[Rfam]
RNA sequence: UGCAGAUGAUGAUCACUUUUUGCUGUGAAAAAAAAAAUGUGAUGACAACCACCAAGAUCGCUGAUGCA
Numbered sequence: 001u002g003c004a005g006a007u008g009a010u011g012a013u014c015a016c017u018u019u020u021u022g023c024u025g026u027g028a029a030a031a032a033a034a035a036a037a038u039g040u041g042a043u044g045a046c047a048a049c050c051a052c053c054a055a056g057a058u059c060g061c062u063g064a065u066g067c068a
Base pairs, nucleotide, nucleotide: 001068002067003066004065
Shown here is a 68-nucleotide RNA sequence from Junco hyemalis, a member of the family "Small nucleolar RNA SNORD24".
Its family is annotated with RNA processing and nucleolus in the Gene Ontology.
A reference for the family is Qu et al. (1995), "U24, a novel intron-encoded small nucleolar RNA with two 12 nt long, phylogenetically conserved complementarities to 28S rRNA", Nucleic Acids Res.
The source organism's lineage runs through Eukaryota, Eumetazoa, Dipnotetrapodomorpha, Sauropsida and Junco.
The match comes from Rfam's covariance-model search (46 bits).